[Rfam]
RNA sequence: UAAGAUUUAUAUGAUGUACCGAAGACAGUAGGUGGCGCAAGCCUUAAUCUCCUACCGAGGACAAUGUUGAGAGUAUCAAUAGUCCCUCUAUGUCAACGGUGGCAUGGGGUUUUUUGUUUUGAAAC
Number, nucleotide and partner (000 for none) at each position: 001u000002a000003a000004g000005a000006u000007u000008u000009a000010u000011a000012u000013g000014a000015u000016g000017u000018a000019c000020c000021g000022a000023a000024g000025a000026c000027a000028g055029u054030a053031g052032g051033u000034g043035g042036c041037g000038c000039a000040a000041g036042c035043c034044u000045u000046a000047a000048u000049c000050u000051c032052c031053u030054a029055c028056c000057g000058a000059g000060g000061a000062c000063a000064a000065u000066g000067u000068u000069g000070a000071g000072a000073g000074u000075a000076u000077c000078a000079a000080u000081a000082g000083u000084c000085c000086c109087u108088c107089u106090a105091u104092g103093u102094c101095a000096a000097c000098g000099g000100u000101g094102g093103c092104a091105u090106g089107g088108g087109g086110u000111u000112u000113u000114u000115u000116g000117u000118u000119u000120u000121g000122a000123a000124a000125c000
RNA: Ribosomal protein L10 leader
Organism: Vagococcus allomyrinae